[Rfam]
RNA sequence: GGACAAUCCGCAGUCCUAACAAGGCGGAGCGACUGGUGAUAGAGAACACCUAUAAAAGCUUA
Numbered sequence: 001g002g003a004c005a006a007u008c009c010g011c012a013g014u015c016c017u018a019a020c021a022a023g024g025c026g027g028a029g030c031g032a033c034u035g036g037u038g039a040u041a042g043a044g045a046a047c048a049c050c051u052a053u054a055a056a057a058g059c060u061u062a
Stems, first nucleotide, its partner, number of pairs: 001016004008027004035050004